RNA: manA RNA
RNA sequence: GGAAGGGCUUAUAAUCCUUCCUGUGGGUGACUCGAAAUAACCUGUCGUGAGCGGGUUAAGGUAUGCAGAUCCCUGUGGUGGGGCUGGCAGAGUCCAAUCGGAUGAGCCAAAAGACAAAUACCAAGUCUAAUCUGUAGUUCGAAGUAGGUAAUCCAUGAACUGAUGUUCACGCCGAAAAGUUGGAGGUAUUCAGUAAUCCUCCCCCACGCCAA
Numbered sequence: 001g002g003a004a005g006g007g008c009u010u011a012u013a014a015u016c017c018u019u020c021c022u023g024u025g026g027g028u029g030a031c032u033c034g035a036a037a038u039a040a041c042c043u044g045u046c047g048u049g050a051g052c053g054g055g056u057u058a059a060g061g062u063a064u065g066c067a068g069a070u071c072c073c074u075g076u077g078g079u080g081g082g083g084c085u086g087g088c089a090g091a092g093u094c095c096a097a098u099c100g101g102a103u104g105a106g107c108c109a110a111a112a113g114a115c116a117a118a119u120a121c122c123a124a125g126u127c128u129a130a131u132c133u134g135u136a137g138u139u140c141g142a143a144g145u146a147g148g149u150a151a152u153c154c155a156u157g158a159a160c161u162g163a164u165g166u167u168c169a170c171g172c173c174g175a176a177a178a179g180u181u182g183g184a185g186g187u188a189u190u191c192a193g194u195a196a197u198c199c200u201c202c203c204c205c206a207c208g209c210c211a212a
Stems, first nucleotide, its partner, number of pairs: 001021006023207005030062002040056005065135006072083003076123004085109004112128004139175002154165003160193003182202005
Dot-bracket structure: ((((((.........)))))).(((((..((........(((((.......)))))....))..((((((.(((.[[[[.))).((((.................))))..((((....]]]].)))).))))))...((.............(((...[[[)))........))......(((((....]]]....)))))))))).....